Shown here is a 98-nucleotide sequence from Trichonephila inaurata, a member of the family "Small nucleolar RNA SNORD10". The literature on the family includes a 2001 paper in EMBO J by Huttenhofer et al., "RNomics: an experimental approach that identifies 201 candidates for novel, small, non-messenger RNAs in mouse".
RNA sequence: GUUCUAUGAUGAAAAUGCGUGUCAUCUGAUCUAGCAUAAUUUUUCCUCCUAUGGGGGAAAUGACAAUUAUAAAUGAUGCAUUACUGCCUUCUGAGAAC
Numbered sequence: 001g002u003u004c005u006a007u008g009a010u011g012a013a014a015a016u017g018c019g020u021g022u023c024a025u026c027u028g029a030u031c032u033a034g035c036a037u038a039a040u041u042u043u044u045c046c047u048c049c050u051a052u053g054g055g056g057g058a059a060a061u062g063a064c065a066a067u068u069a070u071a072a073a074u075g076a077u078g079c080a081u082u083a084c085u086g087c088c089u090u091c092u093g094a095g096a097a098c
Base pairs, nucleotide, nucleotide: 001098002097003096004095039061040060041059042058043057044056045055046054047053
Rfam 15.1 lists 433 matches to the family in 306 species.